The family of this 132-nucleotide sequence from Enterococcus sulfureus is "FMN riboswitch aptamer (RFN element)". NCBI's taxonomy places the organism under Bacteria, Bacillati, Enterococcaceae, Enterococcus, Enterococcus sulfureus.

[Rfam]
RNA sequence: GUUCGUCUUCAGGGGCAGGGUGAAAUUCCCGACCGGUGGUAAUAGUCCACGAACUAUGAUAUACCUGGUGUAUCAUAGCCGAUACGGUGUAAUUCCGUUACCGACAGUACAGUCUGGAUAAAGAAGAUAGGG
Numbered sequence: 001g002u003u004c005g006u007c008u009u010c011a012g013g014g015g016c017a018g019g020g021u022g023a024a025a026u027u028c029c030c031g032a033c034c035g036g037u038g039g040u041a042a043u044a045g046u047c048c049a050c051g052a053a054c055u056a057u058g059a060u061a062u063a064c065c066u067g068g069u070g071u072a073u074c075a076u077a078g079c080c081g082a083u084a085c086g087g088u089g090u091a092a093u094u095c096c097g098u099u100a101c102c103g104a105c106a107g108u109a110c111a112g113u114c115u116g117g118a119u120a121a122a123g124a125a126g127a128u129a130g131g132g
Stems, first nucleotide, its partner, number of pairs: 003130001005128006018030003032113002034103002036050004045101002054078004084098004105116003